[Rfam]
Shown here is a 215-nucleotide RNA sequence from Sphingobium herbicidovorans, a member of the family "permuted transfer-messenger RNA". It is annotated as a non-coding RNA gene. Rfam describes the family as follows. Bacterial tmRNA, also known as 10Sa RNA or SsrA, is named for its dual tRNA and mRNA-like properties. The organism belongs to Sphingobium herbicidovorans, within Bacteria. The family's consensus secondary structure is taken from published work.
RNA sequence: GGUGAUAAAUCGUAUCGUGCAAUAGGCGCAGCGGACCCGGGGGCAGUACCCGGCGGCUCCACCACAUGUCCCGCACUGCCGGGGCGUCUGAUGGGGCCGAACUAGGAUCGACGUGUGUUGAAAAGCGAAUGCCUUCACCCGGCCUGAGUACGCCGUAAAAAGGUUCGAAACCUACAAGUGCCAACGAUAACGAGGCUCUUGCUCUUGCUGCGUAA
Numbered sequence: 001g002g003u004g005a006u007a008a009a010u011c012g013u014a015u016c017g018u019g020c021a022a023u024a025g026g027c028g029c030a031g032c033g034g035a036c037c038c039g040g041g042g043g044c045a046g047u048a049c050c051c052g053g054c055g056g057c058u059c060c061a062c063c064a065c066a067u068g069u070c071c072c073g074c075a076c077u078g079c080c081g082g083g084g085c086g087u088c089u090g091a092u093g094g095g096g097c098c099g100a101a102c103u104a105g106g107a108u109c110g111a112c113g114u115g116u117g118u119u120g121a122a123a124a125g126c127g128a129a130u131g132c133c134u135u136c137a138c139c140c141g142g143c144c145u146g147a148g149u150a151c152g153c154c155g156u157a158a159a160a161a162g163g164u165u166c167g168a169a170a171c172c173u174a175c176a177a178g179u180g181c182c183a184a185c186g187a188u189a190a191c192g193a194g195g196c197u198c199u200u201g202c203u204c205u206u207g208c209u210g211c212g213u214a215a
Stems, first nucleotide, its partner, number of pairs: 001139005015128004027117003031114003037053005054099007140155004